[Rfam]
RNA sequence: GCAAUCUCGGUAGACAAUUUUUUGGUUGCUCUGGGGGACACGCGUAAAGCGCAUUCAAGCUGAGUACUUUUUACGUAGGGUAGGUAUCGAUAAGCCUUUAUCGAUAGACGGGAUACUAGUGCCGCAUAGCGGUGUAUAAAUGGGAAACCCAACA
Numbered sequence: 001g002c003a004a005u006c007u008c009g010g011u012a013g014a015c016a017a018u019u020u021u022u023u024g025g026u027u028g029c030u031c032u033g034g035g036g037g038a039c040a041c042g043c044g045u046a047a048a049g050c051g052c053a054u055u056c057a058a059g060c061u062g063a064g065u066a067c068u069u070u071u072u073a074c075g076u077a078g079g080g081u082a083g084g085u086a087u088c089g090a091u092a093a094g095c096c097u098u099u100a101u102c103g104a105u106a107g108a109c110g111g112g113a114u115a116c117u118a119g120u121g122c123c124g125c126a127u128a129g130c131g132g133u134g135u136a137u138a139a140a141u142g143g144g145a146a147a148c149c150c151a152a153c154a
Base pairs, nucleotide, nucleotide: 006035007034008033009032010031042076043075044074045073046072047071048070049069051067053065085106086105087104088103089102090101091100092099093098120134121133122132123131124130125129
RNA: DABA-DC-AT RNA